[Rfam]
RNA sequence: AAGCAGUGAUUAAAACUGCAUACAAUGUGGCACAAAAGGGUUCGCCACCAUCUUCAGAUCUACCUGAAGAGGCUAUGUGUGCAUCUGAGCUU
Numbered sequence: 001a002a003g004c005a006g007u008g009a010u011u012a013a014a015a016c017u018g019c020a021u022a023c024a025a026u027g028u029g030g031c032a033c034a035a036a037a038g039g040g041u042u043c044g045c046c047a048c049c050a051u052c053u054u055c056a057g058a059u060c061u062a063c064c065u066g067a068a069g070a071g072g073c074u075a076u077g078u079g080u081g082c083a084u085c086u087g088a089g090c091u092u
Base pairs, nucleotide, nucleotide: 001092002091003090004089